Shown here is a 73-nucleotide RNA sequence from Petrocella atlantisensis, a member of the family "tRNA". Pairs were carried over by alignment from the consensus structure, which is taken from published work. The source organism's lineage runs through Bacteria, Bacillati, Clostridia, Lachnospirales and Petrocella. By type it is a transfer RNA.

RNA sequence: GCUGGUAUAGCUCAGUAGGUAGAGCGCAUCCAUGGUAAGGAUGAGGUCACGAGUUCGAAUCUCGUUACUAGCU
Numbered sequence: 001g002c003u004g005g006u007a008u009a010g011c012u013c014a015g016u017a018g019g020u021a022g023a024g025c026g027c028a029u030c031c032a033u034g035g036u037a038a039g040g041a042u043g044a045g046g047u048c049a050c051g052a053g054u055u056c057g058a059a060u061c062u063c064g065u066u067a068c069u070a071g072c073u
Stems, first nucleotide, its partner, number of pairs: 001072007010025004027043005049065005